c-di-GMP-I riboswitch aptamer: a 92-nucleotide RNA sequence from Oxobacter pfennigii. Rfam links the family to the GO term cyclic-di-GMP binding. A reference for the family is Weinberg et al. (2007), "Identification of 22 candidate structured RNAs in bacteria using the CMfinder comparative genomics pipeline", Nucleic Acids Res. About the family: GEMM was predicted in a large-scale screen for bacterial structured RNA regulatory elements. Genes associated with GEMM are involved in a diverse array of functions, including chemotaxis regulation, signal transduction, secretion and chitin.
RNA sequence: AUCCGAUAAAGGCAAACUUAGGGAAACCUAAGGACGCAAAACUAUAGGGGUUAAAAUCACAUAAAAAGUGAUUAUGCCAGCCAGUUACCGAA
Numbered sequence: 001a002u003c004c005g006a007u008a009a010a011g012g013c014a015a016a017c018u019u020a021g022g023g024a025a026a027c028c029u030a031a032g033g034a035c036g037c038a039a040a041a042c043u044a045u046a047g048g049g050g051u052u053a054a055a056a057u058c059a060c061a062u063a064a065a066a067a068g069u070g071a072u073u074a075u076g077c078c079a080g081c082c083a084g085u086u087a088c089c090g091a092a
Base pairs, nucleotide, nucleotide: 012037013036017032018031019030020029021028022027040086041085042084043083047082048081049078050077051076056072057071058070059069